[Rfam]
RNA sequence: GAGUAGUGAUGAGAAAUUAGGAAAGUCAUGCACCACUCUGAUAUGAUAUUCAUAGUGAUUGAUAAACUUUCUCCAUACCCAUAAUAUUUUGUUUCUGAGCUC
Numbered sequence: 001g002a003g004u005a006g007u008g009a010u011g012a013g014a015a016a017u018u019a020g021g022a023a024a025g026u027c028a029u030g031c032a033c034c035a036c037u038c039u040g041a042u043a044u045g046a047u048a049u050u051c052a053u054a055g056u057g058a059u060u061g062a063u064a065a066a067c068u069u070u071c072u073c074c075a076u077a078c079c080c081a082u083a084a085u086a087u088u089u090u091g092u093u094u095c096u097g098a099g100c101u102c
Stems, first nucleotide, its partner, number of pairs: 001102004
Shown here is a 102-nucleotide RNA sequence from Centaurea solstitialis, a member of the family "Small nucleolar RNA Z221/R21b". Lineage of the source: Eukaryota > Spermatophyta > Gunneridae > asterids > Centaurea. It scores 50 bits against the family's covariance model.